[Rfam]
RNA sequence: UCUCGGGUCCGGGCCCCUCUGACGUGGUUUACCGCCACGUGAUGUCGGACUCCUUGG
Numbered sequence: 001u002c003u004c005g006g007g008u009c010c011g012g013g014c015c016c017c018u019c020u021g022a023c024g025u026g027g028u029u030u031a032c033c034g035c036c037a038c039g040u041g042a043u044g045u046c047g048g049a050c051u052c053c054u055u056g057g
Base pairs, nucleotide, nucleotide: 006051007050008049009048010047011046012045022040023039024038025037026036027035028034
RNA: terC RNA